[Rfam]
RNA sequence: GGGUUGGGAUGACAACGAGAGAGAGCACGCUUGUGUUAAUAUUCAUGAAAAACGAAACGUGCGUGACUGUGCACAUGCGUGCUCUCUCCCGUUGUCAUACAAUA
Numbered sequence: 001g002g003g004u005u006g007g008g009a010u011g012a013c014a015a016c017g018a019g020a021g022a023g024a025g026c027a028c029g030c031u032u033g034u035g036u037u038a039a040u041a042u043u044c045a046u047g048a049a050a051a052a053c054g055a056a057a058c059g060u061g062c063g064u065g066a067c068u069g070u071g072c073a074c075a076u077g078c079g080u081g082c083u084c085u086c087u088c089c090c091g092u093u094g095u096c097a098u099a100c101a102a103u104a
Stems, first nucleotide, its partner, number of pairs: 010097005016091002020087002023084001025082006032075005

A member of the RNA family "MIR535 microRNA precursor family" from Cannabis sativa, 104 nucleotides long. A search with the family's covariance model found it, with a score of 77 bits. Its family is annotated with miRNA-mediated post-transcriptional gene silencing and RISC complex in the Gene Ontology. The organism belongs to Cannabis, within Eukaryota.